[Rfam]
RNA: Connexin-43 internal ribosome entry site (IRES)
Organism: Cercocebus atys
RNA sequence: AACUUCUACCUGGUGUGAGCAAUUUUCUUUCAUUAGGGAGAAGGAGCGAGGAAGGUACCAAACAGCAGCAGACUUUUGAACUUGAGACAGUUUUGGCUGCUUCAACUUAACUUUUUUCAUUUUACUUAGUCCCUCAAUGAGUACAAUCAUUUGACAUGCCUACUUCACUUUUUUUAAGUGAACUAACAGCGAACAGGCAAC
Numbered sequence: 001a002a003c004u005u006c007u008a009c010c011u012g013g014u015g016u017g018a019g020c021a022a023u024u025u026u027c028u029u030u031c032a033u034u035a036g037g038g039a040g041a042a043g044g045a046g047c048g049a050g051g052a053a054g055g056u057a058c059c060a061a062a063c064a065g066c067a068g069c070a071g072a073c074u075u076u077u078g079a080a081c082u083u084g085a086g087a088c089a090g091u092u093u094u095g096g097c098u099g100c101u102u103c104a105a106c107u108u109a110a111c112u113u114u115u116u117u118c119a120u121u122u123u124a125c126u127u128a129g130u131c132c133c134u135c136a137a138u139g140a141g142u143a144c145a146a147u148c149a150u151u152u153g154a155c156a157u158g159c160c161u162a163c164u165u166c167a168c169u170u171u172u173u174u175u176a177a178g179u180g181a182a183c184u185a186a187c188a189g190c191g192a193a194c195a196g197g198c199a200a201c
Base pairs, nucleotide, nucleotide: 003019004018007015008014009013029141030140031139033137034136036134037133038132041127042126043125048121049120051118053117054116055115070094071093072092074090075089095112096111098109099106150197151196152195153194157191158190159189165182166180167179168178169177170176